[Rfam]
Nucleotides: 101
Base pairs, nucleotide, nucleotide: 001023002022003021004020005019006018008017009016034060035059036058037057038056039055040054041053042052061099062098063097064096065095068092069091070090071089072088073087074086076085077084078083
Number, partner (000 for none) and nucleotide at each position: 001023c002022c003021g004020g005019a006018u007000g008017c009016u010000g011000c012000u013000u014000u015000c016009g017008g018006g019005u020004c021003c022002g023001g024000u025000g026000g027000a028000c029000a030000u031000a032000g033000a034060g035059a036058g037057c038056g039055c040054c041053g042052g043000c044000u045000c046000u047000c048000a049000c050000u051000u052042c053041c054040g055039g056038c057037g058036u059035u060034u061099c062098u063097c064096a065095u066000g067000c068092c069091c070090a071089g072088a073087u074086u075000g076085c077084u078083c079000a080000c081000a082000g083078g084077a085076g086074g087073a088072u089071u090070u091069g092068g093000a094000a095065a096064u097063g098062a099061g100000a101000a